[Rfam]
RNA sequence: CUGGCACCACACGACUGGCGCAGGUGGGCACACCACCGGGGAGUGACGUUCGUGGGCAUCGACCGCCUGGGUGCCCGCA
Numbered sequence: 001c002u003g004g005c006a007c008c009a010c011a012c013g014a015c016u017g018g019c020g021c022a023g024g025u026g027g028g029c030a031c032a033c034c035a036c037c038g039g040g041g042a043g044u045g046a047c048g049u050u051c052g053u054g055g056g057c058a059u060c061g062a063c064c065g066c067c068u069g070g071g072u073g074c075c076c077g078c079a
Stems, first nucleotide, its partner, number of pairs: 004051001006049002010045003015040002017067004024036004056074005
Dot-bracket structure: ...(.((..(((..(([[[[...((((.....))))..))..)))..)).)....(((((...]]]]..))))).....

This 79-nucleotide RNA sequence from Brachybacterium endophyticum belongs to the Rfam family "ZMP/ZTP riboswitch aptamer (pfl RNA motif)".
NCBI's taxonomy places the organism under Bacteria, Actinomycetota, Actinomycetes, Dermabacteraceae, Brachybacterium.
Pairs were carried over by alignment from the consensus structure, which is taken from published work.
It scores 47 bits against the family's covariance model.